The family of this 96-nucleotide RNA from Mesorhizobium wenxiniae is "Repression of heat shock gene expression (ROSE) element". This family represents a 5' UTR cis-regulatory element found in heat shock mRNAs and is known as the ROSE (repression of heat shock gene expression) element. A reference for the family is Nocker et al. (2001), "A mRNA-based thermosensor controls expression of rhizobial heat shock genes", Nucleic Acids Res.
RNA sequence: CCGGUUGCCGAAUGGGACCGACAGAAUCCAGGGAGCGCCAAGCUCUUUGGCGUCCCUCGUACCUAUGUUGCUCCAUGGAGGAUGUAGCUAUGAGAA
Number, nucleotide and partner (000 for none) at each position: 001c000002c020003g019004g018005u017006u016007g000008c015009c014010g000011a000012a000013u000014g009015g008016g006017a005018c004019c003020g002021a000022c000023a000024g000025a000026a000027u000028c000029c000030a000031g000032g055033g054034a000035g053036c052037g051038c050039c049040a048041a047042g000043c000044u000045c000046u000047u041048u040049g039050g038051c037052g036053u035054c033055c032056c094057u093058c092059g091060u090061a089062c000063c087064u086065a085066u084067g083068u082069u081070g000071c080072u079073c078074c000075a000076u000077g000078g073079a072080g071081g069082a068083u067084g066085u065086a064087g063088c000089u061090a060091u059092g058093a057094g056095a000096a000